A member of the RNA family "Nitrogen stress-induced RNA 1" from Oculatella sp. FACHB-28, 53 nucleotides long. The match comes from Rfam's covariance-model search (54 bits).

[Rfam]
RNA sequence: UGGUAGAUGCACCCUGAUUAAAACCCCGAAGUUAACUCUUCGGGGUUUUUCUU
Numbered sequence: 001u002g003g004u005a006g007a008u009g010c011a012c013c014c015u016g017a018u019u020a021a022a023a024c025c026c027c028g029a030a031g032u033u034a035a036c037u038c039u040u041c042g043g044g045g046u047u048u049u050u051c052u053u
Base pairs, nucleotide, nucleotide: 002013003012004011024045025044026043027042028041029040030039031038
The family has 17 seed sequences and 962 matches in Rfam 15.1.